[Rfam]
RNA sequence: UAAAACCACUCUGGAGAGUCUCCGAUUGGAGCGCCGAAGGUGUAACACAAGAAAGAAUUCUUGUCUAUCUCUCAGGCAAAAGGACAGGGCAUAAAUA
Number, nucleotide and partner (000 for none) at each position: 001u000002a000003a000004a000005a000006c000007c000008a000009c089010u088011c087012u086013g085014g000015a000016g000017a000018g000019u000020c031021u030022c029023c028024g000025a000026u000027u000028g023029g022030a021031g020032c000033g077034c076035c075036g073037a072038a000039g000040g071041u000042g069043u000044a000045a000046c000047a064048c063049a062050a061051g060052a000053a000054a000055g000056a000057a000058u000059u000060c051061u050062u049063g048064u047065c000066u000067a000068u000069c042070u000071c040072u037073c036074a000075g035076g034077c033078a000079a000080a000081a000082g000083g000084a000085c013086a012087g011088g010089g009090c000091a000092u000093a000094a000095a000096u000097a000

Rfam assigns this 97-nucleotide sequence from Clostridiales bacterium CHKCI001 to the family "Glycine riboswitch aptamer". Rfam describes the family as follows. This family represents the bacterial glycine riboswitch. NCBI's taxonomy places the organism under Bacteria, Bacillati, Bacillota, Clostridia, Eubacteriales. It scores 55 bits against the family's covariance model.